[Rfam]
RNA sequence: ACCCGCUUCGGGUGCUGUGCGUGGCACCCGAAGCAUCAGAGACAGACUGUGCCCCGGGAAGUUCUGGGCACUUCAGGGCGUU
Numbered sequence: 001a002c003c004c005g006c007u008u009c010g011g012g013u014g015c016u017g018u019g020c021g022u023g024g025c026a027c028c029c030g031a032a033g034c035a036u037c038a039g040a041g042a043c044a045g046a047c048u049g050u051g052c053c054c055c056g057g058g059a060a061g062u063u064c065u066g067g068g069c070a071c072u073u074c075a076g077g078g079c080g081u082u
Stems, first nucleotide, its partner, number of pairs: 005034012049071006056064001
Rfam assigns this 82-nucleotide RNA from Streptomyces sp. Ncost-T10-10d to the family "nrdJ RNA". A search with the family's covariance model found it, with a score of 78 bits. The source organism's lineage runs through Bacteria, Actinomycetes, Kitasatosporales, Streptomycetaceae and Streptomyces. The family's RNA type in Rfam is small RNA.